Rfam assigns this 51-nucleotide RNA sequence from Betacarmovirus cardaminis to the family "Turnip crinkle virus 3'UTR".
NCBI's taxonomy places the organism under Viruses, Riboviria, Orthornavirae, Tombusviridae, Betacarmovirus cardaminis.

RNA sequence: AACACAAAAAUACCCCCAGCUCGCUUUUGUUUUGAGCUGUGUUAGGGACCA
Numbered sequence: 001a002a003c004a005c006a007a008a009a010a011u012a013c014c015c016c017c018a019g020c021u022c023g024c025u026u027u028u029g030u031u032u033u034g035a036g037c038u039g040u041g042u043u044a045g046g047g048a049c050c051a
Stems, first nucleotide, its partner, number of pairs: 013047003017039006